The record is a 197-nucleotide RNA sequence from Bacillus aquiflavi, which matches "Group II catalytic intron D1-D4-5" in Rfam. Gene Ontology term of the family: Group II intron splicing. The pairing is the family consensus, mapped onto this sequence.
RNA sequence: GAGAACUGAAAAUCCGAUGAGUCGAAUGAAGGGGUAACGCCCUGAAAGGCUCGCCUAAUCCUCCGAAUAGCAUUCACCAGUGCAAAGCUGUUGAAUGUUAUAAGCUCGGUGAAGUCGGUUGAAGGCUAUCCUAACGUCAAGUCGAGGAAAGCUCUCUGGAGGCAGGGGGUAUAGCUGAUAGACCGGGGCUCUAUAAG
Numbered sequence: 001g002a003g004a005a006c007u008g009a010a011a012a013u014c015c016g017a018u019g020a021g022u023c024g025a026a027u028g029a030a031g032g033g034g035u036a037a038c039g040c041c042c043u044g045a046a047a048g049g050c051u052c053g054c055c056u057a058a059u060c061c062u063c064c065g066a067a068u069a070g071c072a073u074u075c076a077c078c079a080g081u082g083c084a085a086a087g088c089u090g091u092u093g094a095a096u097g098u099u100a101u102a103a104g105c106u107c108g109g110u111g112a113a114g115u116c117g118g119u120u121g122a123a124g125g126c127u128a129u130c131c132u133a134a135c136g137u138c139a140a141g142u143c144g145a146g147g148a149a150a151g152c153u154c155u156c157u158g159g160a161g162g163c164a165g166g167g168g169g170u171a172u173a174g175c176u177g178a179u180a181g182a183c184c185g186g187g188g189c190u191c192u193a194u195a196a197g
Base pairs, nucleotide, nucleotide: 019052020051021050022049023048031043032042033041034040053189054188055187056186063109064108065107066106067101068100069099070098071097072096073095074094075093076092078090079089080088116185117184118183119182120181124176125175126174127173128172129171130147131146132145136143151170152169153168154167155166156165157164158163

A search with the family's covariance model found it, with a score of 179 bits. A reference for the family is Bonen and Vogel (2001), "The ins and outs of group II introns", Trends Genet.